[Rfam]
This 78-nucleotide RNA from Sphingomonas sanxanigenens belongs to the Rfam family "Makes More Granules Regulator RNA (mmgR)".
RNA sequence: AGGGGGCGCCUUUCAGGCAUCCUCUCCUAAAACUUUCCAGGCCGGUGCGAUUUCGCGCCGGCCUUUUUUUCGUGCGUU
Number, nucleotide and partner (000 for none) at each position: 001a000002g000003g000004g000005g000006g000007c000008g018009c017010c016011u015012u000013u000014c000015a011016g010017g009018c008019a000020u000021c000022c000023u000024c000025u000026c000027c000028u000029a000030a000031a000032a000033c000034u000035u000036u000037c000038c000039a000040g063041g062042c061043c060044g059045g058046u057047g056048c055049g000050a000051u000052u000053u000054c000055g048056c047057g046058c045059c044060g043061g042062c041063c040064u000065u000066u000067u000068u000069u000070u000071c000072g000073u000074g000075c000076g000077u000078u000
For this family Rfam cites "Evidence for a second class of S-adenosylmethionine riboswitches and other regulatory RNA motifs in alpha-proteobacteria" (Corbino et al., Genome Biol, 2005). By type it is a small RNA. Taxonomically the source falls in Sphingomonas sanxanigenens (Bacteria, Pseudomonadati, Pseudomonadota, Alphaproteobacteria). It scores 51 bits against the family's covariance model.